MIR2593 microRNA precursor family: a 115-nucleotide sequence from Medicago truncatula.
[Rfam]
RNA sequence: UUAUAAGCAAAAUUUUGCAUUUUAGAUUCAUUCAUUUAAUGGUGUAUAUGGUCUUUAUUAUAGACUACAUACAUCAUUUAAUGAAUGAAUCUAAAAUACAAAGUUUUGCUUAUAA
Numbered sequence: 001u002u003a004u005a006a007g008c009a010a011a012a013u014u015u016u017g018c019a020u021u022u023u024a025g026a027u028u029c030a031u032u033c034a035u036u037u038a039a040u041g042g043u044g045u046a047u048a049u050g051g052u053c054u055u056u057a058u059u060a061u062a063g064a065c066u067a068c069a070u071a072c073a074u075c076a077u078u079u080a081a082u083g084a085a086u087g088a089a090u091c092u093a094a095a096a097u098a099c100a101a102a103g104u105u106u107u108g109c110u111u112a113u114a115a
Stems, first nucleotide, its partner, number of pairs: 002114006009107005015101003019097007027089010038078007049067004